[Rfam]
RNA sequence: UGGACAAAUUAUUGUAUUCGACUGUAUUCAACUGUAUUCACUGCGUGAAACAGGGGAUCGGACUGUUUUUAAACGAAAAGUGAAUCAAUUCACAUAAUAGACUCCU
Numbered sequence: 001u002g003g004a005c006a007a008a009u010u011a012u013u014g015u016a017u018u019c020g021a022c023u024g025u026a027u028u029c030a031a032c033u034g035u036a037u038u039c040a041c042u043g044c045g046u047g048a049a050a051c052a053g054g055g056g057a058u059c060g061g062a063c064u065g066u067u068u069u070u071a072a073a074c075g076a077a078a079a080g081u082g083a084a085u086c087a088a089u090u091c092a093c094a095u096a097a098u099a100g101a102c103u104c105c106u
Stems, first nucleotide, its partner, number of pairs: 002105003009100007017092001020090002033087002036085006044075003047069007
Record summary
This 106-nucleotide sequence from Nicotiana attenuata belongs to the Rfam family "MIR6152 microRNA precursor family". Its family is annotated with miRNA-mediated post-transcriptional gene silencing and RISC complex in the Gene Ontology. A search with the family's covariance model found it, with a score of 76 bits. Rfam 15.1 lists 5,807 matches to the family in 3 species.